A member of the RNA family "permuted transfer-messenger RNA", 288 nucleotides long. The family's consensus secondary structure is taken from published work. Rfam classes the family as a non-coding RNA gene. It scores 109 bits against the family's covariance model. For this family Rfam cites "tmRDB (tmRNA database)" (Zwieb et al., Nucleic Acids Res, 2003).
RNA sequence: AGUCGUUGAAGCUCAACGAUGCAGGUUCAGGACCCGGGUGCGAUACCCGGCGCCUCCACCAAGAGCACACCACCCAGGCCAAUCCAUCAGCCCGGGUCGAUUGAACAGGGAAGGGCGCUUGAGAGCGUUAACAAGCCUGCGAGUGGUGUGUUCUUGAUGGGGGCGAAAUAGGAUCGACUGGCCAGCGGGUGUGAUGUGGAGACUAUCGGAGGCGAGCGCGUGAUAGCCGCAAAACUGAUAAAUGCCAACGACAACGUUCGCAUGGAUGCUCAGGCCCUCGCGGCUUAA
Numbered sequence: 001a002g003u004c005g006u007u008g009a010a011g012c013u014c015a016a017c018g019a020u021g022c023a024g025g026u027u028c029a030g031g032a033c034c035c036g037g038g039u040g041c042g043a044u045a046c047c048c049g050g051c052g053c054c055u056c057c058a059c060c061a062a063g064a065g066c067a068c069a070c071c072a073c074c075c076a077g078g079c080c081a082a083u084c085c086a087u088c089a090g091c092c093c094g095g096g097u098c099g100a101u102u103g104a105a106c107a108g109g110g111a112a113g114g115g116c117g118c119u120u121g122a123g124a125g126c127g128u129u130a131a132c133a134a135g136c137c138u139g140c141g142a143g144u145g146g147u148g149u150g151u152u153c154u155u156g157a158u159g160g161g162g163g164c165g166a167a168a169u170a171g172g173a174u175c176g177a178c179u180g181g182c183c184a185g186c187g188g189g190u191g192u193g194a195u196g197u198g199g200a201g202a203c204u205a206u207c208g209g210a211g212g213c214g215a216g217c218g219c220g221u222g223a224u225a226g227c228c229g230c231a232a233a234a235c236u237g238a239u240a241a242a243u244g245c246c247a248a249c250g251a252c253a254a255c256g257u258u259c260g261c262a263u264g265g266a267u268g269c270u271c272a273g274g275c276c277c278u279c280g281c282g283g284c285u286u287a288a
Base pairs, nucleotide, nucleotide: 001204002203003202004201016192017191024183025182026181028180029179030178034050035049036048037047038046051165052164053163054162055161056160057159207220208219